[Rfam]
Nucleotides: 095
Stems, first nucleotide, its partner, number of pairs: 003089007016029004031074003034070002038068001040066001044061005
Number, partner (000 for none) and nucleotide at each position: 001000u002000g003089u004088c005087c006086u007085c008084u009083g010000g011000a012000a013000a014000g015000c016029a017028g018027g019026c020000c021000c022000c023000g024000c025000g026019g027018c028017c029016u030000c031074g032073c033072c034070g035069a036000a037000g038068g039000u040066g041000a042000a043000a044061g045060u046059c047058c048057g049000g050000c051000a052000a053000a054000a055000a056000u057048c058047g059046g060045g061044c062000g063000a064000a065000a066040c067000u068038c069035u070034c071000a072033g073032g074031c075000a076000c077000c078000c079000a080000u081000g082000a083009c084008a085007g086006a087005g088004g089003g090000g091000g092000a093000g094000g095000a